[Rfam]
RNA sequence: UGGAAAACUAAAGCGCCAGGACUAAUCCUUGACCGUAAUUAUGGAUUAGUUGACGAGGUGGAGGUUUAUCGAAGUUUCGGCGGAUGCCUCCCGGCUGAAAGCACAGCCGCGAAUUUCAUCUUUAAAACAUUAAGGCAACUUAAUGCACAAAGAGAUGGGGAUGCUAAAAC
Numbered sequence: 001u002g003g004a005a006a007a008c009u010a011a012a013g014c015g016c017c018a019g020g021a022c023u024a025a026u027c028c029u030u031g032a033c034c035g036u037a038a039u040u041a042u043g044g045a046u047u048a049g050u051u052g053a054c055g056a057g058g059u060g061g062a063g064g065u066u067u068a069u070c071g072a073a074g075u076u077u078c079g080g081c082g083g084a085u086g087c088c089u090c091c092c093g094g095c096u097g098a099a100a101g102c103a104c105a106g107c108c109g110c111g112a113a114u115u116u117c118a119u120c121u122u123u124a125a126a127a128c129a130u131u132a133a134g135g136c137a138a139c140u141u142a143a144u145g146c147a148c149a150a151a152g153a154g155a156u157g158g159g160g161a162u163g164c165u166a167a168a169a170c
Stems, first nucleotide, its partner, number of pairs: 020051009060091005069080004092109006114160007128145007
RNA: glmS glucosamine-6-phosphate activated ribozyme aptamer
Organism: Mesobacillus selenatarsenatis